[Rfam]
RNA sequence: UGUCCCUGACCUGGGUAGAGUGGCAUCUGGUGGUGGUUGCCCAUCUCAUAUCAGCCUAGGGACAAAGCAACCCCUUGUCAUCCCACUUGCUUGUUUGGAUCUGUUGGCCUAUGCCCUGGUUCGUGCCUUGAACACAUAG
Numbered sequence: 001u002g003u004c005c006c007u008g009a010c011c012u013g014g015g016u017a018g019a020g021u022g023g024c025a026u027c028u029g030g031u032g033g034u035g036g037u038u039g040c041c042c043a044u045c046u047c048a049u050a051u052c053a054g055c056c057u058a059g060g061g062a063c064a065a066a067g068c069a070a071c072c073c074c075u076u077g078u079c080a081u082c083c084c085a086c087u088u089g090c091u092u093g094u095u096u097g098g099a100u101c102u103g104u105u106g107g108c109c110u111a112u113g114c115c116c117u118g119g120u121u122c123g124u125g126c127c128u129u130g131a132a133c134a135c136a137u138a139g
Stems, first nucleotide, its partner, number of pairs: 001064007008056001011054004018047003022041004027036001076134003079130002089127001091125001098122002101119003107114002
RNA: Small nucleolar RNA SNORA48
Organism: Aotus nancymaae